[Rfam]
RNA sequence: CUUGACCGACCCCAGGUACAGCGGUUCCGAGCGGUCCUGCCCGUAGGUGGCCAGCAGGGCUUGGGCCUC
Numbered sequence: 001c002u003u004g005a006c007c008g009a010c011c012c013c014a015g016g017u018a019c020a021g022c023g024g025u026u027c028c029g030a031g032c033g034g035u036c037c038u039g040c041c042c043g044u045a046g047g048u049g050g051c052c053a054g055c056a057g058g059g060c061u062u063g064g065g066c067c068u069c
Base pairs, nucleotide, nucleotide: 014026015025017023027063032059037054038053039052041050042049043048
Background
The family of this 69-nucleotide RNA sequence from Actinokineospora spheciospongiae is "ASpks TB sRNA". Rfam 15.1 lists 9,052 matches to the family in 683 species. The match comes from Rfam's covariance-model search (60 bits). The base pairs follow the family's consensus structure, which is taken from published work.